RNA sequence: CGCCCUGACAGCUUUUGUGAUUUAGCAAUUGUACACUGGGCAAAUUGCAUAGUCACAAAAGUGAUCAGGGUU
Numbered sequence: 001c002g003c004c005c006u007g008a009c010a011g012c013u014u015u016u017g018u019g020a021u022u023u024a025g026c027a028a029u030u031g032u033a034c035a036c037u038g039g040g041c042a043a044a045u046u047g048c049a050u051a052g053u054c055a056c057a058a059a060a061g062u063g064a065u066c067a068g069g070g071u072u
Base pairs, nucleotide, nucleotide: 002071003070004069005068006067007066009063011062012061013060014059015058016057017056018055019054020053021052025048026047027046028045029044030043
RNA: mir-153 microRNA precursor family
Organism: Candidula unifasciata